[Rfam]
RNA sequence: GGUUCGAUGCCACGUCGACGGUAGCCAAAGUGCCAUGACCGACGAUGCUAUGAUUGAACCUAUAUUAAUUCGUUUCGCAUUCUAUAGGAACCUGUGGAUUUUAUUCAUCCAUAUUUCCACGGAGCCGUUUUUUGCGAUUACAUGU
Numbered sequence: 001g002g003u004u005c006g007a008u009g010c011c012a013c014g015u016c017g018a019c020g021g022u023a024g025c026c027a028a029a030g031u032g033c034c035a036u037g038a039c040c041g042a043c044g045a046u047g048c049u050a051u052g053a054u055u056g057a058a059c060c061u062a063u064a065u066u067a068a069u070u071c072g073u074u075u076c077g078c079a080u081u082c083u084a085u086a087g088g089a090a091c092c093u094g095u096g097g098a099u100u101u102u103a104u105u106c107a108u109c110c111a112u113a114u115u116u117c118c119a120c121g122g123a124g125c126c127g128u129u130u131u132u133u134g135c136g137a138u139u140a141c142a143u144g145u
Base pairs, nucleotide, nucleotide: 002059003058004057005056006055007054008053009051013047014046015045016044017043020040021039022038024033025032075137076136077135078134079133087126088125092122093121094120096118097117098116100113
Rfam assigns this 145-nucleotide RNA from Apium graveolens to the family "Small nucleolar RNA snoR2/U65". The family is grouped with related families in Rfam's "SNORA65 clan". A search with the family's covariance model found it, with a score of 119 bits. Rfam 15.1 lists 908 matches to the family in 230 species. For this family Rfam cites "Localization and processing from a polycistronic precursor of novel snoRNAs in maize" (Shaw et al., J Cell Sci, 1998). The organism belongs to Apium, within Eukaryota. Rfam classes the family as an H/ACA-box small nucleolar RNA.